[Rfam]
A member of the RNA family "c-di-AMP riboswitch aptamer (ydaO/yuaA leader)" from Cohnella lubricantis, 143 nucleotides long. NCBI's taxonomy places the organism under Bacteria, Bacillati, Caryophanales, Paenibacillaceae, Cohnella. A search with the family's covariance model found it, with a score of 98 bits. The base pairs follow the family's consensus structure. This family represents a conserved RNA structure found upstream of the ydaO and yuaA genes in Bacillus subtilis and related genes in other bacteria.
RNA sequence: GCAAAUCCAAGGCCGAAGCCCAGUACUGGGCGCGGGGGAACCAAGCAUGUUCGUAUGGGGUGAAGCCGUUCGCUGUGAAUGGCAGGGGGACUCUUUGACCCGAACCCGUCAGCUAACCUCGCAGGCCGACAAAGGGAGGAACU
Numbered sequence: 001g002c003a004a005a006u007c008c009a010a011g012g013c014c015g016a017a018g019c020c021c022a023g024u025a026c027u028g029g030g031c032g033c034g035g036g037g038g039a040a041c042c043a044a045g046c047a048u049g050u051u052c053g054u055a056u057g058g059g060g061u062g063a064a065g066c067c068g069u070u071c072g073c074u075g076u077g078a079a080u081g082g083c084a085g086g087g088g089g090a091c092u093c094u095u096u097g098a099c100c101c102g103a104a105c106c107c108g109u110c111a112g113c114u115a116a117c118c119u120c121g122c123a124g125g126c127c128g129a130c131a132a133a134g135g136g137a138g139g140a141a142c143u
Stems, first nucleotide, its partner, number of pairs: 011127004018031003032122006042057002058107003066082004085101003